[Rfam]
RNA: mir-2774 microRNA precursor family
RNA sequence: ACAACAUUCGGACCGUCUACCGAGCAAUAUCACCCGGUCAAUGGAAGACCUUCCCUCUGUCGU
Numbered sequence: 001a002c003a004a005c006a007u008u009c010g011g012a013c014c015g016u017c018u019a020c021c022g023a024g025c026a027a028u029a030u031c032a033c034c035c036g037g038u039c040a041a042u043g044g045a046a047g048a049c050c051u052u053c054c055c056u057c058u059g060u061c062g063u
Stems, first nucleotide, its partner, number of pairs: 004060003010054003015049001016045004022039002025036001